[Rfam]
RNA sequence: GAAAGCAGGCGAGGUGAUCGCGACCAGACUUUGUUCUGGUUGAGGAAAGUCCGGCCUCCUUAAUGACCAGGCUUGCUGGGUAAUACCCAGUGCGGGUAACCGUGAGGAAAGUGCCACAGAAACAUACCGCCAAUGACCUCGGGAAUUUUUCCAAGGUACAGGCAAGGGUGCAAAGGUGUGGUAAGAGCACACCAGCAAUAUCGAGAGAUAUUGACUUGGUAAACCCCAGCCAGGAGUAAGGCCUAGGGACAACGGUUGGUCCAUUUCCCUGUUCCGCUUUUGAGUGCCGCUUGAGAUUGUUGGUAACAGCAGUUCCAGAUAGAUGAUUACCCACUUCCUCUGAAUCUUCGUCAGUGGUAGUGAACAGAAUCCGGCUUACGUCCUGCUUUCAGAC
Dot-bracket structure: (((((((((.(.(((((((.((((((((......))))))))....[[[.[[[[.((((.....[....(((.(((((((.....)))))(((((....)))).)((...(((((...........(((((..(((((................))).)))))..)).......((((((.......)))))).((((((((....))))))).)..)))..))))))))).))))...(((........(.(((......((....].))..))).).......)))......((((((((....))))))))..........))))))).......................................]]]]]]].)..)))))))))....
RNA: Bacterial RNase P class A